[Rfam]
RNA sequence: ACUGGGAACCGUUGCGGGUUCCUGUGAUGCAAGUCUAUGGCAAGUCACUGUGUGCGGCGACGAGAGCACUGGUGAAUCAGGGCUGGCUGGGUGGCUUACUUGGGAAACCUGUCUCAUUGGAAUGAGGAGUUGGCCUCGCGUGCUUGGUGUAAACCGAGUGGGUGAUGCCAUUGAAGUGGUGGGCAAUGCGUGAGGCUGGCAACAGAGCAGCGAAUACCACCCGCUCCACCAUGGUCAAGAGAUUGCAGGAUUCCUUCCAGCAUUCCUGUCAGUCCCCCCUGAGAGGCAUCGUCUACCGCUUACUUU
Numbered sequence: 001a002c003u004g005g006g007a008a009c010c011g012u013u014g015c016g017g018g019u020u021c022c023u024g025u026g027a028u029g030c031a032a033g034u035c036u037a038u039g040g041c042a043a044g045u046c047a048c049u050g051u052g053u054g055c056g057g058c059g060a061c062g063a064g065a066g067c068a069c070u071g072g073u074g075a076a077u078c079a080g081g082g083c084u085g086g087c088u089g090g091g092u093g094g095c096u097u098a099c100u101u102g103g104g105a106a107a108c109c110u111g112u113c114u115c116a117u118u119g120g121a122a123u124g125a126g127g128a129g130u131u132g133g134c135c136u137c138g139c140g141u142g143c144u145u146g147g148u149g150u151a152a153a154c155c156g157a158g159u160g161g162g163u164g165a166u167g168c169c170a171u172u173g174a175a176g177u178g179g180u181g182g183g184c185a186a187u188g189c190g191u192g193a194g195g196c197u198g199g200c201a202a203c204a205g206a207g208c209a210g211c212g213a214a215u216a217c218c219a220c221c222c223g224c225u226c227c228a229c230c231a232u233g234g235u236c237a238a239g240a241g242a243u244u245g246c247a248g249g250a251u252u253c254c255u256u257c258c259a260g261c262a263u264u265c266c267u268g269u270c271a272g273u274c275c276c277c278c279c280u281g282a283g284a285g286g287c288a289u290c291g292u293c294u295a296c297c298g299c300u301u302a303c304u305u306u
Stems, first nucleotide, its partner, number of pairs: 001045003004023007028042003050303003054299004059293005067283001069281001071279002074276001080275008089265005095260002105252002108249005113241002117238004122232002124229001126227005131170004136165004141160008172176001178221005187214001189212003196205003
Rfam assigns this 306-nucleotide RNA sequence from Tieghemiomyces parasiticus to the family "Metazoan signal recognition particle RNA".
A search with the family's covariance model found it, with a score of 108 bits.
For this family Rfam cites "Towards the structure of the mammalian signal recognition particle" (Wild et al., Curr Opin Struct Biol, 2002).
The family's consensus secondary structure is taken from published work.
Its family is annotated with SRP-dependent cotranslational protein targeting to membrane, signal sequence recognition and signal recognition particle, endoplasmic reticulum targeting in the Gene Ontology.
Lineage of the source: Eukaryota > Fungi > Kickxellomycota > Kickxellomycotina > Tieghemiomyces.
It is annotated as a non-coding RNA gene.
From the family's description: The signal recognition particle (SRP) is a universally conserved ribonucleoprotein. It is involved in the co-translational targeting of proteins to membranes. The eukaryotic SRP consists of a 300-nucleotide 7S RNA and six proteins: SRPs 72, 68, 54, 19, 14, and 9. Archaeal SRP consists of a 7S RNA and homologues of the eukaryotic SRP19 and SRP54 proteins. Eukaryotic and archaeal 7S RNAs have very similar secondary structures, as represented by this family. Eight helical elements fold into the Alu and S domains, separated by a long linker region. The Alu domain is thought to mediate the peptide chain elongation retardation function of the SRP. The universally conserved helix which interacts with the SRP54 M domain mediates signal sequence recognition. In eukaryotes and archaea, the SRP19-helix 6 complex is thought to be involved in SRP assembly and stabilises helix 8 for SRP54 binding. The Signal Recognition Particle Database (SRPDB) provides compilations of SRP components, with phylogenetic data and structural illustrations. Many sequences below the threshold for this family are clearly closely related, but are most likely to be SRP RNA derived pseudogenes. The human genome in particular is known to contain a large amount of SRP RNA related sequence, including Alu repeats. While the threshold of this family is set high so as to minimise the number of hits to such regions, it is likely that some remain.